The record is a 101-nucleotide RNA from Oerskovia sp. Root918, which matches "Glycine riboswitch aptamer" in Rfam.

[Rfam]
RNA sequence: CGAACCACUGCGGGAGAGCCCGGCCACCUCAGGGUGAGGUCGGCGCCGAAGGAGCAACUCCUCCCCGAGAAACUCUCAGGCCGACGUACCGCGGUGGCGAG
Numbered sequence: 001c002g003a004a005c006c007a008c009u010g011c012g013g014g015a016g017a018g019c020c021c022g023g024c025c026a027c028c029u030c031a032g033g034g035u036g037a038g039g040u041c042g043g044c045g046c047c048g049a050a051g052g053a054g055c056a057a058c059u060c061c062u063c064c065c066c067g068a069g070a071a072a073c074u075c076u077c078a079g080g081c082c083g084a085c086g087u088a089c090c091g092c093g094g095u096g097g098c099g100a101g
Stems, first nucleotide, its partner, number of pairs: 006096008020043006045081003048077002052075003059067001
This family represents the bacterial glycine riboswitch. Gene Ontology term of the family: glycine biosynthetic process.